[Rfam]
RNA sequence: ACUUCUGAGGAACGCUGCGAGGGUCAUCUGACUCCCAGGCUCAGAGCAUUUGCUGAAAAGCAUCUAAACGGCGUUCACUUUUC
Number, nucleotide and partner (000 for none) at each position: 001a000002c000003u046004u045005c044006u043007g042008a041009g000010g000011a000012a000013c000014g000015c000016u000017g000018c000019g000020a000021g034022g033023g032024u031025c030026a000027u000028c000029u000030g025031a024032c023033u022034c021035c000036c000037a000038g000039g000040c000041u008042c007043a006044g005045a004046g003047c000048a000049u000050u000051u000052g000053c000054u000055g000056a000057a000058a000059a000060g000061c000062a000063u000064c000065u000066a000067a000068a000069c000070g000071g000072c000073g000074u000075u000076c000077a000078c000079u000080u000081u000082u000083c000